The record is a 78-nucleotide RNA sequence, which matches "skipping-rope RNA" in Rfam. Rfam's curators put it in the seed alignment. By type it is a small RNA.
RNA sequence: ACUAUUUGAGGGCAGAAAGGUUCCUGCCGCACCCGAGAGGGUACCUGAGAUGACGAGGUUACUGAACGUCCAAAUAGG
Numbered sequence: 001a002c003u004a005u006u007u008g009a010g011g012g013c014a015g016a017a018a019g020g021u022u023c024c025u026g027c028c029g030c031a032c033c034c035g036a037g038a039g040g041g042u043a044c045c046u047g048a049g050a051u052g053a054c055g056a057g058g059u060u061a062c063u064g065a066a067c068g069u070c071c072a073a074a075u076a077g078g
Base pairs, nucleotide, nucleotide: 002077003076004075005074006073007072008071011028012027013026014025015024019063020062021061030047031042032041033040034039052070053069054068055067